[Rfam]
RNA sequence: UUUACAAACUUAAGUGUUCUCCGUAUAAUCCUGAUAAUAUGGUUCGGGAGUAUCUACUGGAUGACCGUAAAUCUCCAACUAUGGGUGAACCCUUUAUUAGG
Numbered sequence: 001u002u003u004a005c006a007a008a009c010u011u012a013a014g015u016g017u018u019c020u021c022c023g024u025a026u027a028a029u030c031c032u033g034a035u036a037a038u039a040u041g042g043u044u045c046g047g048g049a050g051u052a053u054c055u056a057c058u059g060g061a062u063g064a065c066c067g068u069a070a071a072u073c074u075c076c077a078a079c080u081a082u083g084g085g086u087g088a089a090c091c092c093u094u095u096a097u098u099a100g101g
Stems, first nucleotide, its partner, number of pairs: 018087001020085006029049006058077004063073002